[Rfam]
RNA sequence: GUCCAACUGCCCAAGUGGUCCUAAACAUUUCACAAUUUUCUCAAAGAACUGUUGAACUGUUGAGAACCACUUGAUCAGAA
Numbered sequence: 001g002u003c004c005a006a007c008u009g010c011c012c013a014a015g016u017g018g019u020c021c022u023a024a025a026c027a028u029u030u031c032a033c034a035a036u037u038u039u040c041u042c043a044a045a046g047a048a049c050u051g052u053u054g055a056a057c058u059g060u061u062g063a064g065a066a067c068c069a070c071u072u073g074a075u076c077a078g079a080a
Stems, first nucleotide, its partner, number of pairs: 014071006021064002024061004029056004